A member of the RNA family "MIR397 microRNA precursor family" from Nyssa sinensis, 132 nucleotides long.
The organism belongs to Nyssa, within Eukaryota.
The literature on the family includes a 2009 paper in BMC Genomics by Mica et al., "High throughput approaches reveal splicing of primary microRNA transcripts and tissue specific expression of mature microRNAs in Vitis vinifera".
A search with the family's covariance model found it, with a score of 71 bits.
Gene Ontology terms of the family: RISC complex and miRNA-mediated post-transcriptional gene silencing.
Pairs were carried over by alignment from the consensus structure, which was predicted with WAR.
[Rfam]
RNA sequence: UGAAGAAACAUCAUUGAGUGCAGCGUUGAUAAAGUCCUCUUCCUACAAUUUUUUUUUGUUUUCUUCAUUCGUUUCUCAAUUUCUCUGUGGGUCUAGUCGGAUUCAGCAGCGCUGCACUCAAUCAUGUUUCGC
Numbered sequence: 001u002g003a004a005g006a007a008a009c010a011u012c013a014u015u016g017a018g019u020g021c022a023g024c025g026u027u028g029a030u031a032a033a034g035u036c037c038u039c040u041u042c043c044u045a046c047a048a049u050u051u052u053u054u055u056u057u058g059u060u061u062u063c064u065u066c067a068u069u070c071g072u073u074u075c076u077c078a079a080u081u082u083c084u085c086u087g088u089g090g091g092u093c094u095a096g097u098c099g100g101a102u103u104c105a106g107c108a109g110c111g112c113u114g115c116a117c118u119c120a121a122u123c124a125u126g127u128u129u130c131g132c
Stems, first nucleotide, its partner, number of pairs: 006129006013122016030105001032103001